[Rfam]
RNA sequence: UUGGUUUGUCUUAAGUCAAAUUUGUCUAACUUUGAUCAAGUUUAUAAAAAAUAUAACAAUAUCUAUACUAUCAAAUAUAUGCACUAUCAAAAUAUAUUCCACGGUAGAUUUAAUGAAACAAAUUUAGCAUCAUAGAUGUUAUUUUUUUAUAAAUUUGGUCAAAGUUGAACAAGUUUGACUUAGAACUAACUAAA
Numbered sequence: 001u002u003g004g005u006u007u008g009u010c011u012u013a014a015g016u017c018a019a020a021u022u023u024g025u026c027u028a029a030c031u032u033u034g035a036u037c038a039a040g041u042u043u044a045u046a047a048a049a050a051a052u053a054u055a056a057c058a059a060u061a062u063c064u065a066u067a068c069u070a071u072c073a074a075a076u077a078u079a080u081g082c083a084c085u086a087u088c089a090a091a092a093u094a095u096a097u098u099c100c101a102c103g104g105u106a107g108a109u110u111u112a113a114u115g116a117a118a119c120a121a122a123u124u125u126a127g128c129a130u131c132a133u134a135g136a137u138g139u140u141a142u143u144u145u146u147u148u149a150u151a152a153a154u155u156u157g158g159u160c161a162a163a164g165u166u167g168a169a170c171a172a173g174u175u176u177g178a179c180u181u182a183g184a185a186c187u188a189a190c191u192a193a194a
Base pairs, nucleotide, nucleotide: 005189006188008186009185011183012182013181014180015179016178017177018176019175020174021173022172023171024170025169031163032162033161034160035159045149046148047147048146049145050144051143058140059139060138061137062136063135064134065133066132071127073125074124075123076122
Annotation: MIR1435 microRNA precursor family: a 194-nucleotide RNA sequence from Dichanthelium oligosanthes. The match comes from Rfam's covariance-model search (98 bits). The organism belongs to Dichanthelium, within Eukaryota.